[Rfam]
RNA sequence: UUUUUAGGUAGAGGUUGCAAGUAGAAAAAGUAUUUUAACAGAGCUGGACAAAGCUGUGAAGUUAAAAGAAAGGUUUAUUUGCCGAAGCACUAGGAGUUUGUCAGAACCUAUUGCUGGGUAUGUAGAGAAUAUCUAUAUAACUGUCAUUGAAUUUAUUCAAUGUUGAGCUAUCAAAGUA
Numbered sequence: 001u002u003u004u005u006a007g008g009u010a011g012a013g014g015u016u017g018c019a020a021g022u023a024g025a026a027a028a029a030g031u032a033u034u035u036u037a038a039c040a041g042a043g044c045u046g047g048a049c050a051a052a053g054c055u056g057u058g059a060a061g062u063u064a065a066a067a068g069a070a071a072g073g074u075u076u077a078u079u080u081g082c083c084g085a086a087g088c089a090c091u092a093g094g095a096g097u098u099u100g101u102c103a104g105a106a107c108c109u110a111u112u113g114c115u116g117g118g119u120a121u122g123u124a125g126a127g128a129a130u131a132u133c134u135a136u137a138u139a140a141c142u143g144u145c146a147u148u149g150a151a152u153u154u155a156u157u158c159a160a161u162g163u164u165g166a167g168c169u170a171u172c173a174a175a176g177u178a
Stems, first nucleotide, its partner, number of pairs: 007172005017082009033067007086115004091110004097104001116142002119139008145162006

The record is a 178-nucleotide RNA sequence from Cetobacterium sp. 2A, which matches "Lysine riboswitch aptamer" in Rfam.